Rfam assigns this 249-nucleotide part of an RNA from Chlorochromatium aggregatum to the family "Bacterial large subunit ribosomal RNA". Rfam links the family to the GO terms ribosome and structural constituent of ribosome.

[Rfam]
RNA sequence: GACUUACAUUCAGUGGCGAGGUUAACCGCAUAGGGAAGCCGAAGAGAAAUCGAGUCCGAAUAGGGCGUAAUUGGAAGGAAACUUUCAGUUGUAGUCGCUGGGUGUAGACCCGAAACCAAGUGAUCUAUCCAUGGCCAGAAUGAAAGUGCUGUAACAGGUACUGGAGGUUCGAACCGACUAGUGUUGCAAAACUAGCGGAUGAGCUGUGGAUAGGGGUGAAAGGCUAAACAAACUUGGAAAUAGCUGGUU
Numbered sequence: 001g002a003c004u005u006a007c008a009u010u011c012a013g014u015g016g017c018g019a020g021g022u023u024a025a026c027c028g029c030a031u032a033g034g035g036a037a038g039c040c041g042a043a044g045a046g047a048a049a050u051c052g053a054g055u056c057c058g059a060a061u062a063g064g065g066c067g068u069a070a071u072u073g074g075a076a077g078g079a080a081a082c083u084u085u086c087a088g089u090u091g092u093a094g095u096c097g098c099u100g101g102g103u104g105u106a107g108a109c110c111c112g113a114a115a116c117c118a119a120g121u122g123a124u125c126u127a128u129c130c131a132u133g134g135c136c137a138g139a140a141u142g143a144a145a146g147u148g149c150u151g152u153a154a155c156a157g158g159u160a161c162u163g164g165a166g167g168u169u170c171g172a173a174c175c176g177a178c179u180a181g182u183g184u185u186g187c188a189a190a191a192c193u194a195g196c197g198g199a200u201g202a203g204c205u206g207u208g209g210a211u212a213g214g215g216g217u218g219a220a221a222g223g224c225u226a227a228a229c230a231a232a233c234u235u236g237g238a239a240a241u242a243g244c245u246g247g248u249u
Stems, first nucleotide, its partner, number of pairs: 005106013020040004026034002044051002054066004109247002112244001116237006125213011136201001138170004145162006174198003178195005215225003
On this family, see Cannone et al., BMC Bioinformatics 2002: "The comparative RNA web (CRW) site: an online database of comparative sequence and structure information for ribosomal, intron, and other RNAs". Rfam's curators put it in the seed alignment.